[Rfam]
RNA sequence: UGGCCAAGGAUGAGAACUCUAAUCUGAUUGGAUUCUGCUCUGAUGGAUUAAAGGAUUUACCUGAGGCCA
Numbered sequence: 001u002g003g004c005c006a007a008g009g010a011u012g013a014g015a016a017c018u019c020u021a022a023u024c025u026g027a028u029u030g031g032a033u034u035c036u037g038c039u040c041u042g043a044u045g046g047a048u049u050a051a052a053g054g055a056u057u058u059a060c061c062u063g064a065g066g067c068c069a
Stems, first nucleotide, its partner, number of pairs: 002068004

Source information: Small nucleolar RNA SNORD93: a 69-nucleotide RNA sequence from Otolemur garnettii. Its family is annotated with RNA processing and nucleolus in the Gene Ontology. It is one of the family's seed sequences. The source organism's lineage runs through Eukaryota, Dipnotetrapodomorpha, Mammalia, Eutheria and Otolemur. The family's RNA type in Rfam is C/D-box small nucleolar RNA.